[Rfam]
RNA: Bacillaceae-1 RNA
Organism: Pontibacillus yanchengensis
RNA sequence: UUAUGCGGAAGUUCGAUUAAAACCGCUGCGUCACGCAGCAACAUCGAACCAACCCACCUCGUGUGGG
Numbered sequence: 001u002u003a004u005g006c007g008g009a010a011g012u013u014c015g016a017u018u019a020a021a022a023c024c025g026c027u028g029c030g031u032c033a034c035g036c037a038g039c040a041a042c043a044u045c046g047a048a049c050c051a052a053c054c055c056a057c058c059u060c061g062u063g064u065g066g067g
Base pairs, nucleotide, nucleotide: 011049012048013047014046015045016044017043025039026038027037028036029035053067054066055065056064057063
Dot-bracket structure: ..........(((((((.......(((((.....)))))...)))))))...(((((.....)))))